[Rfam]
RNA sequence: AAAACUUUUGGACGUCUGUAUCGAUAUUUACAAUUGUCAUUCGUACUUCUCCUCUCGCCUCAGCUAAUCGGCUGGGGUUUUU
Numbered sequence: 001a002a003a004a005c006u007u008u009u010g011g012a013c014g015u016c017u018g019u020a021u022c023g024a025u026a027u028u029u030a031c032a033a034u035u036g037u038c039a040u041u042c043g044u045a046c047u048u049c050u051c052c053u054c055u056c057g058c059c060u061c062a063g064c065u066a067a068u069c070g071g072c073u074g075g076g077g078u079u080u081u082u
Base pairs, nucleotide, nucleotide: 057078058077059076060075061074062073063072064071
The family of this 82-nucleotide RNA sequence from Chlorogloeopsis fritschii is "Photosynthesis regulatory RNA1". Gene Ontology terms of the family: regulation of photosynthesis and regulation of translation. The family's RNA type in Rfam is small RNA. On this family, see Georg et al., Plant Cell 2014: "The small regulatory RNA SyR1/PsrR1 controls photosynthetic functions in cyanobacteria".